Rfam assigns this 103-nucleotide RNA sequence from Vibrio proteolyticus to the family "gltS RNA".

RNA sequence: UAUCACCAAGGAAUGUUUUUCUCGCAACAUAUCUUCAGCGAGAGACGGAAUGGACUCGGAGUUGCCACCUUGGCGGACUCAGAAUCAAAAAAUAAAGGAACAG
Numbered sequence: 001u002a003u004c005a006c007c008a009a010g011g012a013a014u015g016u017u018u019u020u021c022u023c024g025c026a027a028c029a030u031a032u033c034u035u036c037a038g039c040g041a042g043a044g045a046c047g048g049a050a051u052g053g054a055c056u057c058g059g060a061g062u063u064g065c066c067a068c069c070u071u072g073g074c075g076g077a078c079u080c081a082g083a084a085u086c087a088a089a090a091a092a093u094a095a096a097g098g099a100a101c102a103g
Stems, first nucleotide, its partner, number of pairs: 020043006060079004064074003
Dot-bracket structure: ...................((((((............))))))................(((((((.....))).))))........................
NCBI's taxonomy places the organism under Bacteria, Pseudomonadota, Vibrionales, Vibrio, Vibrio proteolyticus.